[Rfam]
Description:
The family of this 74-nucleotide sequence from Capsicum baccatum is "Plastid-ycf2 5UTR RNA". Taxonomically the source falls in Capsicum (Eukaryota, Spermatophyta, Gunneridae, Solanaceae). The base pairs follow the family's consensus structure, which was predicted with LocARNA. Rfam's curators write: Plastid ycf2 is a non-coding RNA (ncRNA) recognised in plastids. It was found in the prime untranslated region (5UTR) of ycf2 genes, it presents a tRNA-like motif which suggests it can be involved in mRNA maturation, particularly involved in defining the precise 5' end of the transcript. Rfam classes the family as a cis-regulatory element.
RNA sequence: AUACAUCCAGUAGGAAUUGAACCUAUGAAUUGCCAAUUAUUAGUUGGGCGCUUUAGCCAUUAAGCCAUGGAUAC
Numbered sequence: 001a002u003a004c005a006u007c008c009a010g011u012a013g014g015a016a017u018u019g020a021a022c023c024u025a026u027g028a029a030u031u032g033c034c035a036a037u038u039a040u041u042a043g044u045u046g047g048g049c050g051c052u053u054u055a056g057c058c059a060u061u062a063a064g065c066c067a068u069g070g071a072u073a074c
Stems, first nucleotide, its partner, number of pairs: 005072004010026005039068002043065003047061002050058001